Shown here is a 291-nucleotide RNA from Musa troglodytarum, a member of the family "Plant signal recognition particle RNA". Taxonomically the source falls in Musa (Eukaryota, Tracheophyta, Euphyllophyta, Magnoliopsida). Its Rfam clan is "SRP clan". It is annotated as a non-coding RNA gene.

Nucleotides: 291
Stems, first nucleotide, its partner, number of pairs: 001027001003020004008015002031290006040281001042279003045275001048271005057262001059260002063256001064250007073242004078238002083236009092224002095222005101215006108209002112151001114149006121142003125138005152158002161204004171196003178189003
Number, partner (000 for none) and nucleotide at each position: 001027c002000a003020a004019u005018c006017c007000a008015a009014a010000c011000a012000u013000c014009u015008u016000a017006g018005g019004a020003u021000a022000u023000u024000a025000a026000a027001g028000g029000c030000u031290a032289a033288g034287u035286u036285a037000g038000a039000u040281g041000a042279u043278u044277g045275u046000a047000a048271u049270g050269u051268u052267a053000u054000g055000g056000a057262g058000u059260u060259g061000c062000a063256u064250g065249g066248g067247u068246g069245u070244g071000a072000u073242c074241g075240u076239a077000c078238c079237g080000a081000a082000u083236g084235u085234g086233g087232c088231u089230u090229g091228u092224c093223c094000g095222u096221u097220u098219c099218a100000a101215g102214u103213u104212a105211g106210g107000c108209a109208g110000u111000u112151g113000a114149g115148u116147u117146g118145u119144g120000u121142g122141g123140c124000c125138c126137g127136g128135g129134c130000g131000a132000a133000g134129g135128c136127u137126c138125g139000a140123g141122c142121u143000u144119c145118a146117u147116a148115g149114u150000c151112c152158c153157u154000u155000a156000a157153a158152g159000u160000u161204g162203a163202g164201g165000a166000c167000a168000c169000c170000g171196u172195g173194u174000c175000g176000u177000g178189c179188u180187a181000g182000c183000u184000u185000c186000a187180u188179a189178g190000a191000g192000u193000a194173g195172c196171g197000a198000a199000u200000g201164c202163c203162u204161c205000c206000c207000u208109c209108u210106c211105u212104u213103g214102a215101c216000g217000g218099u219098g220097a221096a222095g223093g224092g225000a226000u227000u228091a229090c230089a231088g232087g233086c234085c235084g236083u237079u238078g239076u240075a241074u242073g243000c244070c245069g246068c247067a248066c249065u250064c251000a252000c253000c254000a255000u256063g257000c258000c259060c260059a261000c262057c263000g264000g265000g266000c267052u268051a269050a270049c271048a272000c273000c274000g275045a276000u277044c278043a279042a280000a281040c282000c283000a284000g285036u286035a287034a288033c289032u290031u291000u